[Rfam]
RNA: Guanidine-I riboswitch aptamer
RNA sequence: GUAAUAGCCGACUAGGGUUCCGAUCCGCGAUCAGAUGAUCAGCGGGUGACUGGUCCGAGAGUUGGCGACCUCCUUCGAGGUUACACGGCGGGAUAAAAGCCCGGGAGAA
Numbered sequence: 001g002u003a004a005u006a007g008c009c010g011a012c013u014a015g016g017g018u019u020c021c022g023a024u025c026c027g028c029g030a031u032c033a034g035a036u037g038a039u040c041a042g043c044g045g046g047u048g049a050c051u052g053g054u055c056c057g058a059g060a061g062u063u064g065g066c067g068a069c070c071u072c073c074u075u076c077g078a079g080g081u082u083a084c085a086c087g088g089c090g091g092g093a094u095a096a097a098a099g100c101c102c103g104g105g106a107g108a109a
Stems, first nucleotide, its partner, number of pairs: 007066006015056002020053002022050001023047006067082006084104001086107001090102003